[Rfam]
mir-14 microRNA precursor family: a 66-nucleotide RNA from Sipha flava. The family's consensus secondary structure was predicted with RNAalifold. Lineage of the source: Eukaryota > Ecdysozoa > Hexapoda > Insecta > Sipha. Gene Ontology terms of the family: miRNA-mediated post-transcriptional gene silencing and RISC complex.

RNA sequence: UGUCGGGGAGAGACAUUAGGCUAUGACUUUUUUGUUUUAUUAGUCAGUCUUUUUCUCUCUCCUAUU
Numbered sequence: 001u002g003u004c005g006g007g008g009a010g011a012g013a014c015a016u017u018a019g020g021c022u023a024u025g026a027c028u029u030u031u032u033u034g035u036u037u038u039a040u041u042a043g044u045c046a047g048u049c050u051u052u053u054u055c056u057c058u059c060u061c062c063u064a065u066u
Stems, first nucleotide, its partner, number of pairs: 002065002005062004010057004018050005026044003